[Rfam]
RNA: tRNA
RNA sequence: AGGAAAAUACUUUAACUGGCAAAACAUUAAGCUUCAACCUUAAAGUACUUGGUUCAAAUCCGAGUUUUCCUG
Numbered sequence: 001a002g003g004a005a006a007a008u009a010c011u012u013u014a015a016c017u018g019g020c021a022a023a024a025c026a027u028u029a030a031g032c033u034u035c036a037a038c039c040u041u042a043a044a045g046u047a048c049u050u051g052g053u054u055c056a057a058a059u060c061c062g063a064g065u066u067u068u069c070c071u072g
Stems, first nucleotide, its partner, number of pairs: 001071007011024003027043005048064005
Dot-bracket structure: (((((((...(((........)))..(((((.......)))))....(((((.......)))))))))))).